[Rfam]
RNA sequence: UCUGAGCCUGGUUCAAGUAAUCCAGGAUAGGGUUGGUGAGACAAGCACAGCCUAUUCUAGAUGACUUGGUUCAGGAAAGU
Number, nucleotide and partner (000 for none) at each position: 001u000002c000003u079004g000005a000006g000007c075008c074009u073010g072011g071012u000013u000014c068015a067016a066017g065018u064019a000020a062021u061022c060023c000024a058025g057026g056027a055028u054029a053030g052031g051032g000033u049034u000035g000036g000037u000038g000039a000040g000041a000042c000043a000044a000045g000046c000047a000048c000049a033050g000051c031052c030053u029054a028055u027056u026057c025058u024059a000060g022061a021062u020063g000064a018065c017066u016067u015068g014069g000070u000071u011072c010073a009074g008075g007076a000077a000078a000079g003080u000
A member of the RNA family "mir-26 microRNA precursor family" from Gouania willdenowi, 80 nucleotides long. The base pairs follow the family's consensus structure, which was predicted with RNAalifold. A search with the family's covariance model found it, with a score of 57 bits. The organism belongs to Gouania, within Eukaryota. On this family, see Lagos-Quintana et al., Science 2001: "Identification of novel genes coding for small expressed RNAs". Its family is annotated with miRNA-mediated post-transcriptional gene silencing and RISC complex in the Gene Ontology.